Rfam assigns this 140-nucleotide sequence from Paenibacillus rhizosphaerae to the family "azaaromatic riboswitch aptamer (yjdF RNA)". The base pairs follow the family's consensus structure, which is taken from published work. It scores 68 bits against the family's covariance model.
[Rfam]
RNA sequence: AAAGUGGAUCGUAAAAUCACAGCCCGGUCGGUAGUCCGCGGCGCAUGUAGGGAGGCAGAGGGCGAUUCGCCAGCACAGCCUCCCGGAUCACAUGUCAGUAGCCUUCCCCCCUCGGGAUGUCCCUCGGUCCGAUUUAUACA
Numbered sequence: 001a002a003a004g005u006g007g008a009u010c011g012u013a014a015a016a017u018c019a020c021a022g023c024c025c026g027g028u029c030g031g032u033a034g035u036c037c038g039c040g041g042c043g044c045a046u047g048u049a050g051g052g053a054g055g056c057a058g059a060g061g062g063c064g065a066u067u068c069g070c071c072a073g074c075a076c077a078g079c080c081u082c083c084c085g086g087a088u089c090a091c092a093u094g095u096c097a098g099u100a101g102c103c104u105u106c107c108c109c110c111c112u113c114g115g116g117a118u119g120u121c122c123c124u125c126g127g128u129c130c131g132a133u134u135u136a137u138a139c140a
Stems, first nucleotide, its partner, number of pairs: 005131007022042003025038003043095006105117004